RNA: FMN riboswitch aptamer (RFN element)
RNA sequence: GUUUGUCUUCAGGGCAGGGAUUGUUUCCCUACCGGUGGUAUAGCCCACGAGCCGCAAGGUAUGAUUCGGUGUAAUUCCGAAGCCGACAGUUAAAGUCUGGAUGAAAGAAGAUGAUA
Numbered sequence: 001g002u003u004u005g006u007c008u009u010c011a012g013g014g015c016a017g018g019g020a021u022u023g024u025u026u027c028c029c030u031a032c033c034g035g036u037g038g039u040a041u042a043g044c045c046c047a048c049g050a051g052c053c054g055c056a057a058g059g060u061a062u063g064a065u066u067c068g069g070u071g072u073a074a075u076u077c078c079g080a081a082g083c084c085g086a087c088a089g090u091u092a093a094a095g096u097c098u099g100g101a102u103g104a105a106a107g108a109a110g111a112u113g114a115u116a
Stems, first nucleotide, its partner, number of pairs: 003114008017029003031096002033085002035048004043083002053059001065081005087099003